Shown here is a 62-nucleotide part of an RNA from Elusimicrobium minutum, a member of the family "Bacterial large subunit ribosomal RNA".
Gene Ontology terms of the family: structural constituent of ribosome and ribosome.
Pairs were carried over by alignment from the consensus structure, which is taken from published work.
A reference for the family is Cannone et al. (2002), "The comparative RNA web (CRW) site: an online database of comparative sequence and structure information for ribosomal, intron, and other RNAs", BMC Bioinformatics.
NCBI's taxonomy places the organism under Bacteria, Pseudomonadati, Elusimicrobiota, Elusimicrobiaceae, Elusimicrobium minutum.
[Rfam]
RNA sequence: UGUCGUAGCGCUAUGAUACACUUCGGUGUAUAAUGCGCGACGGCGUGCCUGUUGAAGAAUGA
Numbered sequence: 001u002g003u004c005g006u007a008g009c010g011c012u013a014u015g016a017u018a019c020a021c022u023u024c025g026g027u028g029u030a031u032a033a034u035g036c037g038c039g040a041c042g043g044c045g046u047g048c049c050u051g052u053u054g055a056a057g058a059a060u061g062a
Base pairs, nucleotide, nucleotide: 002044003043004042005041006040008038009037010036011035048061050059